[Rfam]
RNA sequence: AGGGGCAUAGUUCAGUAGGUAGAACAUCGGUCUUCAAAACCGAGUGUCACGAGUUCGAGUCUUGUUGCCCCUG
Numbered sequence: 001a002g003g004g005g006c007a008u009a010g011u012u013c014a015g016u017a018g019g020u021a022g023a024a025c026a027u028c029g030g031u032c033u034u035c036a037a038a039a040c041c042g043a044g045u046g047u048c049a050c051g052a053g054u055u056c057g058a059g060u061c062u063u064g065u066u067g068c069c070c071c072u073g
Base pairs, nucleotide, nucleotide: 001072002071003070004069005068006067007066010025011024012023013022027043028042029041030040031039049065050064051063052062053061
Rfam assigns this 73-nucleotide RNA sequence from Mycoplasma capricolum to the family "tRNA". The base pairs follow the family's consensus structure, which is taken from published work. It is one of the family's seed sequences. Rfam links the family to the GO term triplet codon-amino acid adaptor activity. By type it is a transfer RNA. Rfam describes the family as follows. Transfer RNA (tRNA) molecules are approximately 80 nucleotides in length. Lineage of the source: Bacteria > Bacillati > Mycoplasmatota > Mycoplasmataceae > Mycoplasma.